RNA: 6S / SsrS RNA
Organism: endosymbiont 'TC1' of Trimyema compressum
RNA sequence: UAAACCCUGCUGGGUCGUGUGUCGUUUAUUUAAUUCCGCAAAGUAAUUAAUGGGAGCUUAGCCUCUUUGCUCAGGAUUGCAGACCUCCUGGUUUACCAGAUGAAGGAAGCGUGAAGUUCAAAGGAGAGCACCCACCUGUCAUAGACGGGUUUUAAGUGACGGCAUGCGACCAAACAGGGUUUAA
Numbered sequence: 001u002a003a004a005c006c007c008u009g010c011u012g013g014g015u016c017g018u019g020u021g022u023c024g025u026u027u028a029u030u031u032a033a034u035u036c037c038g039c040a041a042a043g044u045a046a047u048u049a050a051u052g053g054g055a056g057c058u059u060a061g062c063c064u065c066u067u068u069g070c071u072c073a074g075g076a077u078u079g080c081a082g083a084c085c086u087c088c089u090g091g092u093u094u095a096c097c098a099g100a101u102g103a104a105g106g107a108a109g110c111g112u113g114a115a116g117u118u119c120a121a122a123g124g125a126g127a128g129c130a131c132c133c134a135c136c137u138g139u140c141a142u143a144g145a146c147g148g149g150u151u152u153u154a155a156g157u158g159a160c161g162g163c164a165u166g167c168g169a170c171c172a173a174a175c176a177g178g179g180u181u182u183a184a
Stems, first nucleotide, its partner, number of pairs: 002182008011173001013171002016168003030155002032152002035149003052133003056129004063123001066122004072116001079110002084106003088102001